RNA sequence: AGAUCAACAGAUGAUGUGAUUGGGCUGUUAAUCCACGUUAGUGGGUUUUGCUCAGGAAAGUCCCCGGGCCAAUUAUCGCAGAAAUGCGGACCUGGAAUCAGGUUAAGCUUCAGAGCUUAAGAAUUCCAGUUGGGCCAGUAAUGGUUUGACAGCUCAAGUGUUGAGCCUAUUGGAUUCUAUCUCGAAGUGGGUUUGGCCGAAUAUAUAGUCAUUCACAUCAGUCCAUCUGUGACCUAACUGAACGGGGCUUAUGAUCUGCUGGUC
Numbered sequence: 001a002g003a004u005c006a007a008c009a010g011a012u013g014a015u016g017u018g019a020u021u022g023g024g025c026u027g028u029u030a031a032u033c034c035a036c037g038u039u040a041g042u043g044g045g046u047u048u049u050g051c052u053c054a055g056g057a058a059a060g061u062c063c064c065c066g067g068g069c070c071a072a073u074u075a076u077c078g079c080a081g082a083a084a085u086g087c088g089g090a091c092c093u094g095g096a097a098u099c100a101g102g103u104u105a106a107g108c109u110u111c112a113g114a115g116c117u118u119a120a121g122a123a124u125u126c127c128a129g130u131u132g133g134g135c136c137a138g139u140a141a142u143g144g145u146u147u148g149a150c151a152g153c154u155c156a157a158g159u160g161u162u163g164a165g166c167c168u169a170u171u172g173g174a175u176u177c178u179a180u181c182u183c184g185a186a187g188u189g190g191g192u193u194u195g196g197c198c199g200a201a202u203a204u205a206u207a208g209u210c211a212u213u214c215a216c217a218u219c220a221g222u223c224c225a226u227c228u229g230u231g232a233c234c235u236a237a238c239u240g241a242a243c244g245g246g247g248c249u250u251a252u253g254a255u256c257u258g259c260u261g262g263u264c
Stems, first nucleotide, its partner, number of pairs: 002264005008258004014218006022053002025050001027046003031042002058250003062247004077088004089104006107182001113178001115176001123175002132168004152161002221233003
About this RNA:
RNase MRP: a 264-nucleotide RNA from Mikania micrantha. RNase MRP is an enzymatically active ribonucleoprotein with two distinct roles in eukaryotes. In mitochondria it plays a direct role in the initiation of mitochondrial DNA replication. In the nucleus it is involved in precursor rRNA processing, where it cleaves the internal transcribed spacer 1 between 18S and 5.8S rRNAs. Taxonomically the source falls in Mikania (Eukaryota, Tracheophyta, Spermatophyta, Asteroideae). The family is grouped with related families in Rfam's "RNaseP clan". A search with the family's covariance model found it, with a score of 71 bits. By type it is a ribozyme.